The record is a 170-nucleotide RNA sequence from Prosthecobacter vanneervenii, which matches "c-di-AMP riboswitch aptamer (ydaO/yuaA leader)" in Rfam. Its family is annotated with regulation of gene expression and cyclic-di-AMP binding in the Gene Ontology. It scores 45 bits against the family's covariance model.

RNA sequence: AUAAUACCGCAGCCGAAGCUGCCGCUCCUUCCAGAGCGGUGGCGCGGGGGACCCAAAAACCCUGAGUCGAAAGACCCAGGGCGGGGCGAAGGAAGGUGGGCAACCACCGACCAGUCCACUUCCAAGGACCAGUCCGACAGCUAACCUCGCAGGCGACAUUGGAAGGGCGA
Numbered sequence: 001a002u003a004a005u006a007c008c009g010c011a012g013c014c015g016a017a018g019c020u021g022c023c024g025c026u027c028c029u030u031c032c033a034g035a036g037c038g039g040u041g042g043c044g045c046g047g048g049g050g051a052c053c054c055a056a057a058a059a060c061c062c063u064g065a066g067u068c069g070a071a072a073g074a075c076c077c078a079g080g081g082c083g084g085g086g087c088g089a090a091g092g093a094a095g096g097u098g099g100g101c102a103a104c105c106a107c108c109g110a111c112c113a114g115u116c117c118a119c120u121u122c123c124a125a126g127g128a129c130c131a132g133u134c135c136g137a138c139a140g141c142u143a144a145c146c147u148c149g150c151a152g153g154c155g156a157c158a159u160u161g162g163a164a165g166g167g168c169g170a
Base pairs, nucleotide, nucleotide: 012154013153014152018043019042020041021040022039023038024037025036026035027034044150045149046148047147048146049145054083084135085134086133092111095108096107097106098105099104114129115128116127117126